[Rfam]
This 96-nucleotide RNA sequence from Sandaracinomonas limnophila belongs to the Rfam family "TPP riboswitch aptamer (THI element)". Lineage of the source: Bacteria > Pseudomonadati > Bacteroidota > Cytophagales > Sandaracinomonas.
RNA sequence: AUCCACAAAAAGGGGUGCCUUAAAAUUAAGGCUGAGAUUAUACCCAUAGAACCUGAUGCAGGUAAUGCUGCCGAAGGGAUUUUGUAGAGAUUUUAG
Numbered sequence: 001a002u003c004c005a006c007a008a009a010a011a012g013g014g015g016u017g018c019c020u021u022a023a024a025a026u027u028a029a030g031g032c033u034g035a036g037a038u039u040a041u042a043c044c045c046a047u048a049g050a051a052c053c054u055g056a057u058g059c060a061g062g063u064a065a066u067g068c069u070g071c072c073g074a075a076g077g078g079a080u081u082u083u084g085u086a087g088a089g090a091u092u093u094u095a096g
Stems, first nucleotide, its partner, number of pairs: 006084005012045003016040001017032005052077003058071004
The match comes from Rfam's covariance-model search (77 bits). From the family's description: Vitamin B(1) in its active form thiamin pyrophosphate (TPP) is an essential coenzyme that is synthesised by coupling of pyrimidine and thiazole moieties in bacteria.